[Rfam]
This 224-nucleotide sequence belongs to the Rfam family "Group II catalytic intron D1-D4-6". Its family is annotated with Group II intron splicing in the Gene Ontology.
RNA sequence: AGAGCCAUACAGAGAAGGAGUAGCGAUCCACUCUGGCCCUGAGUCAUGCGUUGUUGUUCGUAAGGACCGCGGUGAAGCGUUGACAGGGGUACGUCCAGGCUGGGUAUUGAGCCGCGAAAUUGCUGAUAUGCUCCGAGGGGCCGACGCUUUAGCAGGAAGCGGAAGGCAACAACUGGCGCGUCGAUAUCGCGAGACGCGUGGGAACCUCGCGCGGUCUGAGACCC
Dot-bracket structure: .........(((((..(((.[.[[..))).))))).((((..((((((((((((.((((....)))).))))))...)).)))).))))..................((.((((((.................(((((.(((..((((((.....))))))...))).....((.(((((((......]].]))))))).))..)))))))))))).)......